[Rfam]
Nucleotides: 090
Base pairs, nucleotide, nucleotide: 006085007084008083009082011080012079013078020034021033022032023031036070037069038068039066040065043064044063045062049057050056
Number, partner (000 for none) and nucleotide at each position: 001000a002000u003000c004000a005000c006085c007084g008083c009082a010000c011080c012079g013078g014000g015000a016000g017000a018000a019000u020034c021033c022032g023031g024000c025000c026000c027000a028000g029000u030000g031023c032022c033021g034020g035000u036070g037069c038068c039066g040065a041000a042000g043064g044063a045062g046000c047000a048000a049057c050056c051000g052000c053000c054000c055000c056050g057049g058000u059000a060000a061000a062045c063044u064043c065040u066039c067000a068038g069037g070036c071000a072000u073000c074000a075000g076000g077000a078013c079012c080011g081000u082009u083008g084007c085006g086000g087000g088000c089000a090000c
Description
A member of the RNA family "Glycine riboswitch aptamer" from Pacificitalea manganoxidans, 90 nucleotides long.